Shown here is a 384-nucleotide sequence from Palleronia pontilimi, a member of the family "Bacterial RNase P class A". Pairs were carried over by alignment from the consensus structure, which is taken from published work. The match comes from Rfam's covariance-model search (276 bits).
[Rfam]
Nucleotides: 384
Stems, first nucleotide, its partner, number of pairs: 001380010011369001012331007020046006027039002051367003055364005060224004069265002073220005078092005093107001094105004108215002113213002115209003130155002132151008163181006182204001183202003187198004228288004238279006257271003295314008
Number, partner (000 for none) and nucleotide at each position: 001380g002379c003378g004377g005376a006375u007374g008373g009372c010371u011369g012331g013330a014329u015328g016327a017326u018325c019000g020046c021045g022044u023043g024042c025041g026000c027039g028038g029000c030000c031000c032000g033000c034000a035000a036000g037000g038028c039027c040000a041025c042024g043023u044022g045021c046020g047000a048000g049000g050000a051367a052366a053365g054000u055364c056363c057362g058361g059360a060224c061223u062222c063221c064000a065000g066000g067000a068000a069265g070264a071000a072000a073220c074219g075218g076217u077216g078092c079091c080090g081089g082088g083000u084000a085000a086000c087000g088082c089081c090080c091079g092078g093107g094105c095104g096103g097102g098000g099000c100000a101000a102097c103096c104095c105094g106000a107093c108215g109214g110000a111000u112000a113213g114212c115209g116208c117207c118000a119000c120000a121000g122000a123000a124000a125000a126000c127000a128000g129000a130155c131154c132151g133150c134149c135148c136147c137146g138145g139144g140000u141000c142000c143000g144139c145138c146137c147136g148135g149134g150133g151132u152000c153000a154131g155130g156000g157000u158000g159000a160000a161000a162000c163181g164180g165179u166178g167177g168176g169000g170000u171000a172000a173000g174000a175000g176168c177167c178166c179165a180164c181163c182204g183202g184201g185200g186000g187198g188197c189196u190195g191000g192000c193000a194000a195190c196189a197188g198187c199000g200185c201184c202183c203000g204182c205000a206000u207117g208116g209115c210000a211000a212114g213113c214109c215108c216077c217076a218075c219074c220073g221063g222062g223061a224060g225000c226000a227000a228288u229287g230286c231285c232000g233000a234000a235000u236000a237000g238279g239278g240277a241276u242275c243274g244000c245000g246000c247000g248000g249000c250000g251000c252000a253000a254000g255000c256000c257271g258270g259269g260000c261000c262000u263000c264070u265069u266000c267000c268000a269259c270258c271257c272000a273000g274243c275242g276241a277240u278239c279238c280000g281000g282000g283000u284000a285231g286230g287229c288228a289000g290000c291000u292000a293000g294000a295314g296313c297312c298311u299310g300309u301308c302307g303000g304000c305000a306000a307302c308301g309300g310299c311298a312297g313296g314295u315000g316000c317000a318000g319000a320000u321000g322000a323000a324000u325018g326017a327016u328015c329014a330013u331012c332000c333000a334000g335000c336000c337000c338000g339000c340000g341000g342000c343000g344000a345000c346000g347000c348000g349000g350000g351000g352000g353000g354000a355000c356000a357000g358000g359000a360059u361058c362057c363056g364055g365053c366052u367051u368000a369011c370000a371010g372009g373008c374007c375006g376005u377004c378003c379002g380001c381000g382000c383000g384000c

Lineage of the source: Bacteria > Pseudomonadota > Alphaproteobacteria > Rhodobacterales > Palleronia.